Shown here is a 62-nucleotide RNA, a member of the family "RAGATH-18 RNA". The base pairs follow the family's consensus structure, which is taken from published work. About the family: Actinobacteria, Firmicutes, Fusobacteria, Thermotogae (1 example).
[Rfam]
RNA sequence: CCCUUGGAGUGUUGUAAAAACUUGAGUAGUUUAAAACGAAAGAGAACACGAUGAAUAGGGAA
Numbered sequence: 001c002c003c004u005u006g007g008a009g010u011g012u013u014g015u016a017a018a019a020a021c022u023u024g025a026g027u028a029g030u031u032u033a034a035a036a037c038g039a040a041a042g043a044g045a046a047c048a049c050g051a052u053g054a055a056u057a058g059g060g061a062a
Stems, first nucleotide, its partner, number of pairs: 001060004009049005021044003029037003